Shown here is a 71-nucleotide sequence from Otolemur garnettii, a member of the family "Small nucleolar RNA SNORD56". It is annotated as a C/D-box small nucleolar RNA. On this family, see Galardi et al., Mol Cell Biol 2002: "Purified box C/D snoRNPs are able to reproduce site-specific 2'-O-methylation of target RNA in vitro". A search with the family's covariance model found it, with a score of 36 bits. Its family is annotated with RNA processing and nucleolus in the Gene Ontology. Taxonomically the source falls in Otolemur (Eukaryota, Tetrapoda, Primates, Galagidae).
RNA sequence: CUGGGAUAAUGGUAAAAUUUUUCAUCAACCGGAAUUUACGUGGUGAAUGUUGGUAACUUCAGGCAACCUGA
Numbered sequence: 001c002u003g004g005g006a007u008a009a010u011g012g013u014a015a016a017a018u019u020u021u022u023c024a025u026c027a028a029c030c031g032g033a034a035u036u037u038a039c040g041u042g043g044u045g046a047a048u049g050u051u052g053g054u055a056a057c058u059u060c061a062g063g064c065a066a067c068c069u070g071a
Base pairs, nucleotide, nucleotide: 002070003069004068009025010024011023